[Rfam]
RNA sequence: GUUGAGGCUCCAUCUAUAAAUGGAUAAUUCUUUAGCGUUAGUCUAGACCUAGUUUAUUAAAAAAUGAGCAAUAUAAGCCUUCUUUUGAAGGCUUAUAUUGCUC
Numbered sequence: 001g002u003u004g005a006g007g008c009u010c011c012a013u014c015u016a017u018a019a020a021u022g023g024a025u026a027a028u029u030c031u032u033u034a035g036c037g038u039u040a041g042u043c044u045a046g047a048c049c050u051a052g053u054u055u056a057u058u059a060a061a062a063a064a065u066g067a068g069c070a071a072u073a074u075a076a077g078c079c080u081u082c083u084u085u086u087g088a089a090g091g092c093u094u095a096u097a098u099u100g101c102u103c
Base pairs, nucleotide, nucleotide: 009024010023011022012021013020066103067102068101069100070099071098072097073096074095075094077092078091079090080089081088

This 103-nucleotide RNA belongs to the Rfam family "Plastid-psbA-1 3UTR RNA". The base pairs follow the family's consensus structure, which was predicted with LocARNA. On this family, see Richter et al., Plant Commun 2023: "Retrograde signaling in plants: A critical review focusing on the GUN pathway and beyond". Plastid psbA-1 is a non-coding RNA (ncRNA) present in plastids.